This 262-nucleotide RNA sequence from [Clostridium] fimetarium belongs to the Rfam family "Bacterial large signal recognition particle RNA". Its family is annotated with signal recognition particle, plasma membrane targeting and SRP-dependent cotranslational protein targeting to membrane, signal sequence recognition in the Gene Ontology. The family's consensus secondary structure is taken from published work. The family's RNA type in Rfam is non-coding RNA gene.
RNA sequence: CCGCGCAGCUGGGGAGUUAGCGGCACCCUGUACCUGCAAUCCGCUACAGCAGGAGUGAUGUAUUGCCUAGGGUAAAAUUUGUGGAGCUGCCCGAUAUAAGUGGUGUUGACGUUUGGGUCUUUCGCAACAGAAAUUCAUGAAUCAUGUCAGGUCAGGAAUGAAGCAGCAUUAAGUGAAACCUUUUGUGUGCCGGAGGGUCGCCUAAACUGAGCUAACUAUAUCGGUAACGUCUGGGGAUUCCUAUUCGAAGCAAUACGCGCGG
Numbered sequence: 001c002c003g004c005g006c007a008g009c010u011g012g013g014g015a016g017u018u019a020g021c022g023g024c025a026c027c028c029u030g031u032a033c034c035u036g037c038a039a040u041c042c043g044c045u046a047c048a049g050c051a052g053g054a055g056u057g058a059u060g061u062a063u064u065g066c067c068u069a070g071g072g073u074a075a076a077a078u079u080u081g082u083g084g085a086g087c088u089g090c091c092c093g094a095u096a097u098a099a100g101u102g103g104u105g106u107u108g109a110c111g112u113u114u115g116g117g118u119c120u121u122u123c124g125c126a127a128c129a130g131a132a133a134u135u136c137a138u139g140a141a142u143c144a145u146g147u148c149a150g151g152u153c154a155g156g157a158a159u160g161a162a163g164c165a166g167c168a169u170u171a172a173g174u175g176a177a178a179c180c181u182u183u184u185g186u187g188u189g190c191c192g193g194a195g196g197g198u199c200g201c202c203u204a205a206a207c208u209g210a211g212c213u214a215a216c217u218a219u220a221u222c223g224g225u226a227a228c229g230u231c232u233g234g235g236g237a238u239u240c241c242u243a244u245u246c247g248a249a250g251c252a253a254u255a256c257g258c259g260c261g262g
Base pairs, nucleotide, nucleotide: 001262002261003260004259005258006257008056009055010054011029012028013027014026016024017023018022033053034052035051036050037049061255062254063253064252065251066250070246071245072244073243074242076239077238078237079236080235082233083232084231085230088226089225092223093222094221095220096219097218100216101215102213103212104211111207112206113205114204115203116202117201118200119196120195121194122193123192124191125187126186128185129184130183131182132181134177135176136175137174138173144169145168146167147166152161153160154159